The family of this 271-nucleotide RNA sequence from Xenopus laevis is "Small Cajal body specific RNA 6".
The source organism's lineage runs through Eukaryota, Vertebrata, Amphibia, Pipidae and Xenopus.
Rfam's curators write: U88 is small Cajal body specific RNA (scaRNA). scaRNAs are a novel class of small nuclear RNAs which localise to the Cajal bodies. U88 is found associated with both fibrillarin and Gar1p and co-localises with coilin in Cajal bodies.

Nucleotides: 271
Stems, first nucleotide, its partner, number of pairs: 001271004034252001036250001039247001043227007061213004065127007083112002086109006092102001135190001137189006149177007157169001
Number, partner (000 for none) and nucleotide at each position: 001271g002270g003269u004268c005000a006000g007000u008000g009000a010000u011000g012000a013000a014000u015000a016000g017000u018000a019000a020000a021000a022000g023000g024000u025000c026000u027000g028000a029000c030000u031000g032000c033000c034252u035000g036250a037000a038000a039247a040000g041000u042000u043227c044226u045225c046224c047223c048222a049221u050000a051000u052000c053000c054000a055000g056000u057000u058000u059000c060000u061213c062212u063211c064210c065127c066126a067125g068124c069123a070122g071121c072000c073000u074000c075000u076000c077000u078000g079000u080000u081000u082000u083112c084111c085000c086109a087108u088107c089106g090105g091104g092102c093000u094000c095000c096000a097000g098000c099000u100000g101000u102092g103000c104091u105090u106089u107088g108087a109086u110000u111084g112083g113000c114000u115000a116000c117000u118000u119000a120000u121071g122070c123069u124068g125067c126066u127065g128000a129000c130000a131000g132000g133000u134000u135190u136000u137189g138188a139187u140186a141185c142184u143000g144000a145000a146000u147000c148000c149177u150176g151175c152174a153173u154172u155171u156000c157169c158000a159000a160000a161000a162000g163000a164000a165000u166000a167000g168000g169157g170000a171155a172154a173153g174152u175151g176150c177149a178000g179000u180000a181000a182000c183000a184142a185141g186140u187139a188138u189137u190135g191000u192000a193000c194000a195000u196000g197000g198000u199000u200000a201000u202000g203000u204000a205000a206000u207000a208000a209000a210064g211063g212062a213061g214000a215000g216000c217000a218000a219000g220000g221049a222048u223047g224046g225045g226044g227043g228000u229000a230000g231000a232000a233000u234000u235000c236000u237000g238000u239000g240000c241000a242000g243000u244000g245000c246000a247039u248000g249000a250036u251000a252034a253000c254000a255000c256000a257000u258000u259000a260000u261000a262000a263000a264000c265000u266000g267000a268004g269003a270002c271001c